The record is a 46-nucleotide RNA from Cyclonatronum proteinivorum, which matches "Acido-Lenti-1 RNA" in Rfam.
Pairs were carried over by alignment from the consensus structure, which is taken from published work.
It is annotated as a small RNA.
RNA sequence: CGCAGGGUUGGCACCCUGGGCUGUGAUAUGCCGCCCCGCCGGGGCU
Numbered sequence: 001c002g003c004a005g006g007g008u009u010g011g012c013a014c015c016c017u018g019g020g021c022u023g024u025g026a027u028a029u030g031c032c033g034c035c036c037c038g039c040c041g042g043g044g045c046u
Stems, first nucleotide, its partner, number of pairs: 001020001003018006033045005